[Rfam]
RNA sequence: CUGUUACUUUAGGAGUGUCACGUAAUUUGACUGAGAAAUAUCCUUUGAACCUGAUUUGGCUGAUACCAACGAAGGGAAAAGUUUCUAUCUUUCA
Numbered sequence: 001c002u003g004u005u006a007c008u009u010u011a012g013g014a015g016u017g018u019c020a021c022g023u024a025a026u027u028u029g030a031c032u033g034a035g036a037a038a039u040a041u042c043c044u045u046u047g048a049a050c051c052u053g054a055u056u057u058g059g060c061u062g063a064u065a066c067c068a069a070c071g072a073a074g075g076g077a078a079a080a081g082u083u084u085c086u087a088u089c090u091u092u093c094a
Base pairs, nucleotide, nucleotide: 006082007081008080009079010078011044012043013042014041016038017031018030019029020028050075051074052073056069057068058067059066
The record is a 94-nucleotide RNA sequence from Fulvivirga sp. M361, which matches "TPP riboswitch aptamer (THI element)" in Rfam.
For this family Rfam cites "Validating fragment-based drug discovery for biological RNAs: lead fragments bind and remodel the TPP riboswitch specifically" (Warner et al., Chem Biol, 2014).